[Rfam]
RNA sequence: ACCCGUAGAAGCCUGUGUGGCGUUAUCUUCGGACAGGGGUUCGACUCCCCUCGCCUCCACCAAUACUAUCAGAAAAGCGACCUCACGAGGUUGAGAGUUAAACCAAAGCUUUGCCGCCGCGGCAAGCAUAUGCUUUAAUAAACUCGCGGCAAACAUUUGCUUUAAUAUUUAAUUUCUUUAGCUCGGGGCCGUUUAUGGAUUCGACGGGGAUAGUUCGAGCAUGAGUAGCGAGUAGUGGGGACGCGUCCACUUCAUCAACGCUAAAGCCUAUUAAACGGCAAACAACAACAACCUUACGCUUUAGCAGCUUAA
Numbered sequence: 001a002c003c004c005g006u007a008g009a010a011g012c013c014u015g016u017g018u019g020g021c022g023u024u025a026u027c028u029u030c031g032g033a034c035a036g037g038g039g040u041u042c043g044a045c046u047c048c049c050c051u052c053g054c055c056u057c058c059a060c061c062a063a064u065a066c067u068a069u070c071a072g073a074a075a076a077g078c079g080a081c082c083u084c085a086c087g088a089g090g091u092u093g094a095g096a097g098u099u100a101a102a103c104c105a106a107a108g109c110u111u112u113g114c115c116g117c118c119g120c121g122g123c124a125a126g127c128a129u130a131u132g133c134u135u136u137a138a139u140a141a142a143c144u145c146g147c148g149g150c151a152a153a154c155a156u157u158u159g160c161u162u163u164a165a166u167a168u169u170u171a172a173u174u175u176c177u178u179u180a181g182c183u184c185g186g187g188g189c190c191g192u193u194u195a196u197g198g199a200u201u202c203g204a205c206g207g208g209g210a211u212a213g214u215u216c217g218a219g220c221a222u223g224a225g226u227a228g229c230g231a232g233u234a235g236u237g238g239g240g241a242c243g244c245g246u247c248c249a250c251u252u253c254a255u256c257a258a259c260g261c262u263a264a265a266g267c268c269u270a271u272u273a274a275a276c277g278g279c280a281a282a283c284a285a286c287a288a289c290a291a292c293c294u295u296a297c298g299c300u301u302u303a304g305c306a307g308c309u310u311a312a
Stems, first nucleotide, its partner, number of pairs: 001233002004230002014223004025211003029207003035051005052191002055188004234251004

Background
permuted transfer-messenger RNA: a 312-nucleotide RNA from Paenibacillus protaetiae. The organism belongs to Paenibacillus, within Bacteria. It is annotated as a non-coding RNA gene. From the family's description: Bacterial tmRNA, also known as 10Sa RNA or SsrA, is named for its dual tRNA and mRNA-like properties. Its role is to liberate the mRNA from a stalled ribosome. To accomplish this part of the tmRNA is used as a reading frame that ends in a translation stop signal. The broken mRNA is replaced in the ribosome by the tmRNA and translation of the tmRNA leads to addition of a proteolysis tag to the incomplete protein enabling recognition by a protease. Recently a number of permuted tmRNA genes have been found encoded in two parts. tmRNAs have been identified in eubacteria and some chloroplasts but are absent from archaeal and eukaryote nuclear genomes. It scores 79 bits against the family's covariance model.